[Rfam]
RNA: MIR403 microRNA precursor family
Organism: Prunus yedoensis
RNA sequence: ACACAUCCCCAGUUUGUGCGUGAAUCGAACCCCAUCACAGCCGUCCAUCUUUAUGAUCACGCUGUCAACUCAAUCCAAUGGUGUUAGAUUCACGCACAAACUCGUGAUCUGUCU
Numbered sequence: 001a002c003a004c005a006u007c008c009c010c011a012g013u014u015u016g017u018g019c020g021u022g023a024a025u026c027g028a029a030c031c032c033c034a035u036c037a038c039a040g041c042c043g044u045c046c047a048u049c050u051u052u053a054u055g056a057u058c059a060c061g062c063u064g065u066c067a068a069c070u071c072a073a074u075c076c077a078a079u080g081g082u083g084u085u086a087g088a089u090u091c092a093c094g095c096a097c098a099a100a101c102u103c104g105u106g107a108u109c110u111g112u113c114u
Stems, first nucleotide, its partner, number of pairs: 001112003005108003011102016028085003032081002043071001